[Rfam]
RNA sequence: UAGCCUGAAAUGAUGUUCUGGAUUCAUGUCUCUUCUCUGAGAUGUGUUAUGGAGACAACUAGAUACAUUUCUGAUCAGGCUU
Numbered sequence: 001u002a003g004c005c006u007g008a009a010a011u012g013a014u015g016u017u018c019u020g021g022a023u024u025c026a027u028g029u030c031u032c033u034u035c036u037c038u039g040a041g042a043u044g045u046g047u048u049a050u051g052g053a054g055a056c057a058a059c060u061a062g063a064u065a066c067a068u069u070u071c072u073g074a075u076c077a078g079g080c081u082u
Stems, first nucleotide, its partner, number of pairs: 002081004
Description:
Shown here is an 82-nucleotide sequence from Nycticryphes semicollaris, a member of the family "Small nucleolar RNA SNORD111". Rfam links the family to the GO terms RNA processing and nucleolus. By type it is a C/D-box small nucleolar RNA. The organism belongs to Nycticryphes, within Eukaryota. A reference for the family is Galardi et al. (2002), "Purified box C/D snoRNPs are able to reproduce site-specific 2'-O-methylation of target RNA in vitro", Mol Cell Biol. The base pairs follow the family's consensus structure, which was predicted with RNAalifold.